[Rfam]
RNA sequence: CAUGGGCGCCCUUGCGACGGAUCGUCCGGCACGUUCCUGCCGGCGAGGAAAGAAGC
Numbered sequence: 001c002a003u004g005g006g007c008g009c010c011c012u013u014g015c016g017a018c019g020g021a022u023c024g025u026c027c028g029g030c031a032c033g034u035u036c037c038u039g040c041c042g043g044c045g046a047g048g049a050a051a052g053a054a055g056c
Base pairs, nucleotide, nucleotide: 010048011047012046013045014044026043027042028041029040030039031038

Background
The family of this 56-nucleotide sequence from Kribbella antiqua is "msiK RNA". NCBI's taxonomy places the organism under Bacteria, Bacillati, Propionibacteriales, Kribbellaceae, Kribbella. Pairs were carried over by alignment from the consensus structure, which is taken from published work. The family's RNA type in Rfam is cis-regulatory element. A search with the family's covariance model found it, with a score of 46 bits.